[Rfam]
RNA sequence: GACCGGUUACCCGAACAGUCACCCUUAGGUGCGCGUGCCACGCAGAGCGAUGGAUAGGGUAACCGGUCGUUC
Numbered sequence: 001g002a003c004c005g006g007u008u009a010c011c012c013g014a015a016c017a018g019u020c021a022c023c024c025u026u027a028g029g030u031g032c033g034c035g036u037g038c039c040a041c042g043c044a045g046a047g048c049g050a051u052g053g054a055u056a057g058g059g060u061a062a063c064c065g066g067u068c069g070u071u072c
Base pairs, nucleotide, nucleotide: 001068002067003066004065005064006063007062009060010059011058012057018034019033020031021030022029023028038053039052040051
The record is a 72-nucleotide sequence, which matches "DUF3800-IX RNA" in Rfam. Rfam's curators write: Actinobacteria, Firmicutes (1 example), Nitrospirae, Proteobacteria, Verrucomicrobia (1 example). The base pairs follow the family's consensus structure, which is taken from published work.